[Rfam]
RNA sequence: GUCGGGAGGGCGGCUAAUACAACACCCUUCGGGGAAAUACGCCCGCCGUCUGUCUGCGGUUUCGAACCUCCCGACAUCCCGUC
Numbered sequence: 001g002u003c004g005g006g007a008g009g010g011c012g013g014c015u016a017a018u019a020c021a022a023c024a025c026c027c028u029u030c031g032g033g034g035a036a037a038u039a040c041g042c043c044c045g046c047c048g049u050c051u052g053u054c055u056g057c058g059g060u061u062u063c064g065a066a067c068c069u070c071c072c073g074a075c076a077u078c079c080c081g082u083c
Stems, first nucleotide, its partner, number of pairs: 001075009012043003015039002025034003045060005
A member of the RNA family "sRNA-Xcc1" from Xanthomonas oryzae, 83 nucleotides long. The family has 74 seed sequences and 421 matches in Rfam 15.1. Rfam classes the family as a small RNA.